[Rfam]
RNA sequence: GUGUCAAUGUUUAGAAUUCAUUUGGUCCUGAGGAAAGAUGAUGGCCUAAAAAUCAUGCUCAAAAAGAUUAUGCUGAAACCC
Numbered sequence: 001g002u003g004u005c006a007a008u009g010u011u012u013a014g015a016a017u018u019c020a021u022u023u024g025g026u027c028c029u030g031a032g033g034a035a036a037g038a039u040g041a042u043g044g045c046c047u048a049a050a051a052a053u054c055a056u057g058c059u060c061a062a063a064a065a066g067a068u069u070a071u072g073c074u075g076a077a078a079c080c081c
Base pairs, nucleotide, nucleotide: 001081003079004078005075006074008072009071